[Rfam]
RNA sequence: CUUAAAGCCGGGUAUUUGAACCGUAUUGUGCGCCCGACAUAAGUCAAAGCACUAAAAAGGAGAUG
Numbered sequence: 001c002u003u004a005a006a007g008c009c010g011g012g013u014a015u016u017u018g019a020a021c022c023g024u025a026u027u028g029u030g031c032g033c034c035c036g037a038c039a040u041a042a043g044u045c046a047a048a049g050c051a052c053u054a055a056a057a058a059g060g061a062g063a064u065g
Base pairs, nucleotide, nucleotide: 010035011034012033013032026055027054028052029051030050031049037044038043
The record is a 65-nucleotide RNA sequence from Candidatus Pelagibacter sp. IMCC9063, which matches "SAM-V (S-adenosyl methionine) riboswitch aptamer" in Rfam. For this family Rfam cites "Identification of candidate structured RNAs in the marine organism 'Candidatus Pelagibacter ubique'" (Meyer et al., BMC Genomics, 2009). About the family: SAM-V riboswitch is a cis-regulatory element that was recognised in marine bacteria it recognise S-adenosylmethione (SAM). The family has 7 seed sequences and 23 matches in Rfam 15.1. Gene Ontology terms of the family: regulation of gene expression and S-adenosylmethionine metabolic process. It scores 69 bits against the family's covariance model. The organism belongs to Candidatus Pelagibacter, within Bacteria.